[Rfam]
RNA sequence: GUCGGUCUUCGGUAGUGGCCACUCGGCCGGGUCGUGACGUCACGACCGCCGGAGGGCUUCGAUCGAUGGCCGCC
Numbered sequence: 001g002u003c004g005g006u007c008u009u010c011g012g013u014a015g016u017g018g019c020c021a022c023u024c025g026g027c028c029g030g031g032u033c034g035u036g037a038c039g040u041c042a043c044g045a046c047c048g049c050c051g052g053a054g055g056g057c058u059u060c061g062a063u064c065g066a067u068g069g070c071c072g073c074c
Stems, first nucleotide, its partner, number of pairs: 001074001003072005009066005017058004023052004028048003
This 74-nucleotide RNA sequence from Rhodococcus spelaei belongs to the Rfam family "Actino-pnp RNA". A search with the family's covariance model found it, with a score of 50 bits. The base pairs follow the family's consensus structure, which is taken from published work.